Shown here is a 199-nucleotide RNA sequence from Oryza sativa, a member of the family "MIR159 microRNA precursor family". The sequence is in the family's curated seed alignment.
RNA sequence: GAGGAGGAAGAGGAGCUCCUUUCGAUCCAAUUCAGGAGAGGAAGUGGUAGGAUGCAGCUGCCGAUUCAUGGAUACCUCUGGAGUGCAUGGCAGCAAUGCUGUAGGCCUGCACUUGCAUGGGUUUGCAUGACCCGGGAGAUGAACCCACCAUUGUCUUCCUCUAUUGAUUGGAUUGAAGGGAGCUCCACAUCUCUCUCGU
Number, nucleotide and partner (000 for none) at each position: 001g000002a000003g000004g000005a000006g000007g000008a000009a000010g000011a000012g000013g185014a184015g183016c182017u181018c180019c179020u178021u000022u000023c175024g174025a173026u172027c171028c170029a169030a000031u000032u000033c000034a000035g000036g162037a000038g000039a000040g000041g000042a000043a000044g000045u000046g000047g000048u000049a000050g000051g000052a000053u000054g000055c000056a000057g000058c138059u137060g000061c135062c134063g133064a000065u000066u000067c129068a128069u127070g126071g000072a000073u000074a000075c121076c120077u119078c000079u000080g000081g000082a000083g000084u000085g000086c000087a000088u000089g000090g000091c000092a000093g000094c000095a000096a000097u000098g000099c000100u000101g000102u000103a000104g000105g000106c000107c000108u000109g000110c000111a000112c000113u000114u000115g000116c000117a000118u000119g077120g076121g075122u000123u000124u000125g000126c070127a069128u068129g067130a000131c000132c000133c063134g062135g061136g000137a059138g058139a000140u000141g000142a000143a000144c000145c000146c000147a000148c000149c000150a000151u000152u000153g000154u000155c000156u000157u000158c000159c000160u000161c000162u036163a000164u000165u000166g000167a000168u000169u029170g028171g027172a026173u025174u024175g023176a000177a000178g020179g019180g018181a017182g016183c015184u014185c013186c000187a000188c000189a000190u000191c000192u000193c000194u000195c000196u000197c000198g000199u000